[Rfam]
Nucleotides: 119
Stems, first nucleotide, its partner, number of pairs: 001080004009039001011038006021031002040067003045063003049058002083108002085105002088102005
Number, partner (000 for none) and nucleotide at each position: 001080g002079g003078u004077c005000a006000a007000g008000a009039g010000u011038g012037c013036c014035a015034g016033c017000g018000u019000c020000a021031a022030g023000u024000c025000c026000c027000c028000g029000g030022c031021u032000a033016g034015c035014u036013g037012g038011c039009c040067g041066g042065c043000a044000a045063c046062c047061c048000u049058c050057c051000a052000a053000c054000c055000g056000c057050g058049g059000c060000g061047g062046g063045g064000u065042g066041c067040c068000c069000c070000g071000g072000g073000u074000c075000a076000a077004g078003a079002c080001c081000a082000g083108g084107c085105c086104g087000a088102g089101c090100c091099g092098c093000g094000u095000a096000a097000u098092g099091c100090g101089g102088u103000c104086c105085g106000g107084g108083c109000a110000a111000g112000c113000g114000c115000g116000g117000g118000c119000u